[Rfam]
RNA sequence: GACCGUAUCGGUUCGAUCGGGAUACUCAUCAAUAAUAAAACGAAAACCGAGAUGAUUUCUUUUGCUAAUGGCGGGCCACAUUCCCCAGCAAUGAGGAUAGCUGUAAAGCCGGUGGAUUACAAAGGCGGAGAACUCUCAAAUCUUUCUAGCUCGGAGUUUCAUCACAUCAUCGGUGCGGUCUUUUUU
Numbered sequence: 001g002a003c004c005g006u007a008u009c010g011g012u013u014c015g016a017u018c019g020g021g022a023u024a025c026u027c028a029u030c031a032a033u034a035a036u037a038a039a040a041c042g043a044a045a046a047c048c049g050a051g052a053u054g055a056u057u058u059c060u061u062u063u064g065c066u067a068a069u070g071g072c073g074g075g076c077c078a079c080a081u082u083c084c085c086c087a088g089c090a091a092u093g094a095g096g097a098u099a100g101c102u103g104u105a106a107a108g109c110c111g112g113u114g115g116a117u118u119a120c121a122a123a124g125g126c127g128g129a130g131a132a133c134u135c136u137c138a139a140a141u142c143u144u145u146c147u148a149g150c151u152c153g154g155a156g157u158u159u160c161a162u163c164a165c166a167u168c169a170u171c172g173g174u175g176c177g178g179u180c181u182u183u184u185u186u
Stems, first nucleotide, its partner, number of pairs: 056132002059130001061129006069121002076115004082097003100109003

This 186-nucleotide RNA sequence from Prevotella sp. CAG:592 belongs to the Rfam family "Bacteroidales-1 6S-Bacteroidales RNA suggested". Rfam describes the family as follows. Bacteroidales-1 was first reported in a comparative genomics-based approach of genome and metagenome sequences from Weinberg et al. 2010 In a high-resolution transcriptome map study of Bacteroides thetaiotaomicron, Ryan et al. 2020 report this sRNA as 6S RNA homologue of Bacteroides, in the study they obtain evidence of small product RNAs (pRNAs) related to 6S function. A reference for the family is Ryan et al. (2020), "A high-resolution transcriptome map identifies small RNA regulation of metabolism in the gut microbe Bacteroides thetaiotaomicron", Nat Commun. The match comes from Rfam's covariance-model search (147 bits). It is annotated as a small RNA.